The record is a 115-nucleotide RNA from Gehongia tenuis, which matches "FMN riboswitch aptamer (RFN element)" in Rfam. Gene Ontology term of the family: FMN binding.
[Rfam]
RNA sequence: AGGUUCUUUCAGGGCAGGGUGCGAUUCCCGACCGGCGGUUUAGCCCGCGAGCCCCCUUGGGGUUGACCAGGUGAUUCCUGGGCCGACAGUAAAGUCUGGAUGAAAGAAAGUUCCU
Numbered sequence: 001a002g003g004u005u006c007u008u009u010c011a012g013g014g015c016a017g018g019g020u021g022c023g024a025u026u027c028c029c030g031a032c033c034g035g036c037g038g039u040u041u042a043g044c045c046c047g048c049g050a051g052c053c054c055c056c057u058u059g060g061g062g063u064u065g066a067c068c069a070g071g072u073g074a075u076u077c078c079u080g081g082g083c084c085g086a087c088a089g090u091a092a093a094g095u096c097u098g099g100a101u102g103a104a105a106g107a108a109a110g111u112u113c114c115u
Stems, first nucleotide, its partner, number of pairs: 003113001006110005017029003031095002033085002035048004043083002051063003067081005087098003

Background
The family's consensus secondary structure is taken from published work.